[Rfam]
RNA: Eukaryotic large subunit ribosomal RNA, nucleotides 415 to 639
RNA sequence: UACUUAUAACUAAACUUAUAUCUAGUAAAUUACUUAGCUCUUAUAGCUAAGGUAUUCUACUAGCUUAAGCUAGUAUUAGCUUACUAUUAAGGAGAAAAGCUUUAGGAAUAUAGCUCUCUUUAAAGAGUAUUAUAACUUAUUAUAUAAUACUUUUUAGUAAGCUAAGGUAUAUACUCUAUAAGGAUACUAGUAUAAUAGUUAUUAGUAACCUAUCUUAAAAUAUAG
Numbered sequence: 001u002a003c004u005u006a007u008a009a010c011u012a013a014a015c016u017u018a019u020a021u022c023u024a025g026u027a028a029a030u031u032a033c034u035u036a037g038c039u040c041u042u043a044u045a046g047c048u049a050a051g052g053u054a055u056u057c058u059a060c061u062a063g064c065u066u067a068a069g070c071u072a073g074u075a076u077u078a079g080c081u082u083a084c085u086a087u088u089a090a091g092g093a094g095a096a097a098a099g100c101u102u103u104a105g106g107a108a109u110a111u112a113g114c115u116c117u118c119u120u121u122a123a124a125g126a127g128u129a130u131u132a133u134a135a136c137u138u139a140u141u142a143u144a145u146a147a148u149a150c151u152u153u154u155u156a157g158u159a160a161g162c163u164a165a166g167g168u169a170u171a172u173a174c175u176c177u178a179u180a181a182g183g184a185u186a187c188u189a190g191u192a193u194a195a196u197a198g199u200u201a202u203u204a205g206u207a208a209c210c211u212a213u214c215u216u217a218a219a220a221u222a223u224a225g
Stems, first nucleotide, its partner, number of pairs: 001207004006202007017067001020066001022063004071189007210225004